RNA sequence: AUUAAAGUAUCACUCCGUAUUUUCUUAAAAUAACCCUCAGCAAUUAACGGGGUAACCGUGUUUUUCGGAUUAAACUCAGAUUCAGAAUUUGAGAUAACUAACAGACAUCAGGAAUUAUCCGAUAAAAAAAUGCCGGCAUAUCGCCGGCAUUGUUCAUGACA
Numbered sequence: 001a002u003u004a005a006a007g008u009a010u011c012a013c014u015c016c017g018u019a020u021u022u023u024c025u026u027a028a029a030a031u032a033a034c035c036c037u038c039a040g041c042a043a044u045u046a047a048c049g050g051g052g053u054a055a056c057c058g059u060g061u062u063u064u065u066c067g068g069a070u071u072a073a074a075c076u077c078a079g080a081u082u083c084a085g086a087a088u089u090u091g092a093g094a095u096a097a098c099u100a101a102c103a104g105a106c107a108u109c110a111g112g113a114a115u116u117a118u119c120c121g122a123u124a125a126a127a128a129a130a131u132g133c134c135g136g137c138a139u140a141u142c143g144c145c146g147g148c149a150u151u152g153u154u155c156a157u158g159a160c161a
Base pairs, nucleotide, nucleotide: 014105015104017102018101023069024068025067027065028064029063030062033059042053044051045050111120112119130150131149132148133147134146135145136144137143